A member of the RNA family "Ribosomal protein L10 leader" from Firmicutes bacterium ASF500, 134 nucleotides long.
The family's consensus secondary structure was predicted with CMfinder.

RNA sequence: AUAGAAUACAGCUUGCGUUCAAAGACAGCAGGGGCUCUUCGGGGCAUAAUUCCUGCCGAGAGUGCAUUCAAAGGGAUAUUCUUUUGAUUGUGCUGUCCUCCUGUCUGACGACGGGAGGUUUUUUGUUUCGCAGA
Numbered sequence: 001a002u003a004g005a006a007u008a009c010a011g012c013u014u015g016c017g018u019u020c021a022a023a024g025a026c027a028g029c030a031g032g033g034g035c036u037c038u039u040c041g042g043g044g045c046a047u048a049a050u051u052c053c054u055g056c057c058g059a060g061a062g063u064g065c066a067u068u069c070a071a072a073g074g075g076a077u078a079u080u081c082u083u084u085u086g087a088u089u090g091u092g093c094u095g096u097c098c099u100c101c102u103g104u105c106u107g108a109c110g111a112c113g114g115g116a117g118g119u120u121u122u123u124u125g126u127u128u129c130g131c132a133g134a
Stems, first nucleotide, its partner, number of pairs: 028056006034045003097118009
Gene Ontology term of the family: regulation of gene expression. This family is a putative r-protein leader autoregulatory structure found in B. subtilis and other low-GC Gram-positive bacteria. It is located in the 5' untranslated regions of mRNAs encoding ribosomal proteins L10 and L12 (rplJ-rplL). A Rho-independent transcription terminator structure that is probably involved in regulation is included at the 3' end. Taxonomically the source falls in Bacillota (Bacteria, Bacillati).